[Rfam]
Rfam assigns this 127-nucleotide RNA sequence from Ananas comosus to the family "MIR827 microRNA precursor family". Gene Ontology terms of the family: miRNA-mediated post-transcriptional gene silencing and RISC complex. NCBI's taxonomy places the organism under Eukaryota, Euphyllophyta, Bromeliaceae, Bromelioideae, Ananas. It scores 70 bits against the family's covariance model.
RNA sequence: AUGUGUUUUGUUGAUAGUCAUCUAACCAUGCAUGUAUAUCCCCUUGCUUGAGUAUAUUAAUUUCUUUAUUUUUGCAGGUUGAGGAGAUGCAUAGGUUAUUGGUUAGAUGACCAUCAACAAACAUGUU
Numbered sequence: 001a002u003g004u005g006u007u008u009u010g011u012u013g014a015u016a017g018u019c020a021u022c023u024a025a026c027c028a029u030g031c032a033u034g035u036a037u038a039u040c041c042c043c044u045u046g047c048u049u050g051a052g053u054a055u056a057u058u059a060a061u062u063u064c065u066u067u068a069u070u071u072u073u074g075c076a077g078g079u080u081g082a083g084g085a086g087a088u089g090c091a092u093a094g095g096u097u098a099u100u101g102g103u104u105a106g107a108u109g110a111c112c113a114u115c116a117a118c119a120a121a122c123a124u125g126u127u
Stems, first nucleotide, its partner, number of pairs: 005122004010118006017111012